RNA sequence: AGCUCGACCGGGUCGUGGUCGAGCGGCACCAGCACGCCGUCGACCACGGCGAUGCGGUGCCGGGCUCC
Numbered sequence: 001a002g003c004u005c006g007a008c009c010g011g012g013u014c015g016u017g018g019u020c021g022a023g024c025g026g027c028a029c030c031a032g033c034a035c036g037c038c039g040u041c042g043a044c045c046a047c048g049g050c051g052a053u054g055c056g057g058u059g060c061c062g063g064g065c066u067c068c
Stems, first nucleotide, its partner, number of pairs: 004063003008059001011030003015027002018024001035056003040052003044048001
Dot-bracket structure: ...(((.(..(((.((.(.....).)))))....(((..(((.(...).))).)))..).))).....
ASdes TB sRNA: a 68-nucleotide RNA sequence from Streptomyces hainanensis. Lineage of the source: Bacteria > Bacillati > Actinomycetes > Streptomycetaceae > Streptomyces. Pairs were carried over by alignment from the consensus structure, which is taken from published work.